[Rfam]
RNA: rpsB sRNA
Organism: Inquilinus limosus
RNA sequence: CACACGCGGGCAUCGCGGCCUGCCACGGCAGUGGCUCGGUCGCUCCGGUGCUUUUCGCCAUAUCCGCAAUCCGCGGUGCGGCGAGGGGCAAAGCCCGCGGCGGAACAACCGGAAAAAGGACCUUC
Numbered sequence: 001c002a003c004a005c006g007c008g009g010g011c012a013u014c015g016c017g018g019c020c021u022g023c024c025a026c027g028g029c030a031g032u033g034g035c036u037c038g039g040u041c042g043c044u045c046c047g048g049u050g051c052u053u054u055u056c057g058c059c060a061u062a063u064c065c066g067c068a069a070u071c072c073g074c075g076g077u078g079c080g081g082c083g084a085g086g087g088g089c090a091a092a093g094c095c096c097g098c099g100g101c102g103g104a105a106c107a108a109c110c111g112g113a114a115a116a117a118g119g120a121c122c123u124u125c
Stems, first nucleotide, its partner, number of pairs: 001102001003100001005099007015043002023034002052087008